[Rfam]
Nucleotides: 083
Base pairs, nucleotide, nucleotide: 001081002080003079004078
Number, partner (000 for none) and nucleotide at each position: 001081g002080g003079u004078c005000u006000g007000c008000g009000g010000u011000g012000g013000g014000u015000g016000u017000u018000g019000g020000c021000a022000u023000g024000u025000a026000c027000u028000g029000u030000c031000u032000g033000a034000g035000c036000a037000u038000g039000a040000a041000u042000c043000u044000a045000a046000a047000g048000a049000u050000g051000g052000u053000c054000a055000g056000u057000u058000u059000a060000g061000c062000u063000c064000u065000a066000g067000a068000a069000u070000u071000a072000c073000u074000c075000u076000g077000a078004g079003a080002c081001c082000u083000g